[Rfam]
RNA sequence: AAGUAUCAUUAAUCGUGCGGAUUAAUAAUCCAGGACUCUAAAACCGUGUUGCUUGUUCUGGCUCAAUCCGGAUCCCAAGCGUCAAGUCCAUCGGAGAGAUCAAUCUAUGUUCAUCUUAAUGCCCUUUUCGUACUAUUGCUUGUUUGUGAUAGAUUUUGAGAGUUCUGAAUUCUCAUUAUUUAUUUGCUACAGUUAGUGGGAGGGCUGGUAGGACACACAUCU
Numbered sequence: 001a002a003g004u005a006u007c008a009u010u011a012a013u014c015g016u017g018c019g020g021a022u023u024a025a026u027a028a029u030c031c032a033g034g035a036c037u038c039u040a041a042a043a044c045c046g047u048g049u050u051g052c053u054u055g056u057u058c059u060g061g062c063u064c065a066a067u068c069c070g071g072a073u074c075c076c077a078a079g080c081g082u083c084a085a086g087u088c089c090a091u092c093g094g095a096g097a098g099a100u101c102a103a104u105c106u107a108u109g110u111u112c113a114u115c116u117u118a119a120u121g122c123c124c125u126u127u128u129c130g131u132a133c134u135a136u137u138g139c140u141u142g143u144u145u146g147u148g149a150u151a152g153a154u155u156u157u158g159a160g161a162g163u164u165c166u167g168a169a170u171u172c173u174c175a176u177u178a179u180u181u182a183u184u185u186g187c188u189a190c191a192g193u194u195a196g197u198g199g200g201a202g203g204g205c206u207g208g209u210a211g212g213a214c215a216c217a218c219a220u221c222u
Base pairs, nucleotide, nucleotide: 008026009025010024011023012022013021014020029095030094031093033089034088035087036086051080052079053078054077055076057072058071059070060069061068114213115212116211117210118209121205122204123203124202125201128200129199131198132197133196134195135194141191142190143189

Small nucleolar RNA snR35: a 222-nucleotide RNA from Maudiozyma saulgeensis. It is annotated as an H/ACA-box small nucleolar RNA.